RNA: Small nucleolar RNA SNORA63
RNA sequence: GUGCAGGAUAAGUUACAAUGCAGCUUGUGCAGUACUGUGUUGUCGUUCCCCCUGCAAAUAUGAACUUGUUUCCUCGCUAUCCCUGACUGUCCCAUCUCUUGGACUGUCAGGGACGUAAGGAUUCAGACAU
Numbered sequence: 001g002u003g004c005a006g007g008a009u010a011a012g013u014u015a016c017a018a019u020g021c022a023g024c025u026u027g028u029g030c031a032g033u034a035c036u037g038u039g040u041u042g043u044c045g046u047u048c049c050c051c052c053u054g055c056a057a058a059u060a061u062g063a064a065c066u067u068g069u070u071u072c073c074u075c076g077c078u079a080u081c082c083c084u085g086a087c088u089g090u091c092c093c094a095u096c097u098c099u100u101g102g103a104c105u106g107u108c109a110g111g112g113a114c115g116u117a118a119g120g121a122u123u124c125a126g127a128c129a130u
Stems, first nucleotide, its partner, number of pairs: 003055005015043009025034001082111004087106001089104002